[Rfam]
RNA: Y RNA
RNA sequence: GGCCAGUCCAAGUGCAGUGGUGUUUACAACUAAUUGAUCAUAAUCUGUUACAGAGUUAUUUGUUCCUUCUCCACUUACACUGCUUCACUUGACAAAUCUAUA
Dot-bracket structure: ((...(((.((..(.((((........(((.((.........................)).))).............))))....)..)))))...))....